[Rfam]
RNA sequence: AUAGAAGAUGGUAGUUUUAGUCUGUAAAGCGUUCUUAGACGACAUAAACAAUGCAUUCCUUACGAAGCCUUGUUUAUGUCGUCUAAGAACGCUUUACAGACUAAAACUACCAUCUUCUAU
Numbered sequence: 001a002u003a004g005a006a007g008a009u010g011g012u013a014g015u016u017u018u019a020g021u022c023u024g025u026a027a028a029g030c031g032u033u034c035u036u037a038g039a040c041g042a043c044a045u046a047a048a049c050a051a052u053g054c055a056u057u058c059c060u061u062a063c064g065a066a067g068c069c070u071u072g073u074u075u076a077u078g079u080c081g082u083c084u085a086a087g088a089a090c091g092c093u094u095u096a097c098a099g100a101c102u103a104a105a106a107c108u109a110c111c112a113u114c115u116u117c118u119a120u
Stems, first nucleotide, its partner, number of pairs: 001120028030091002033088015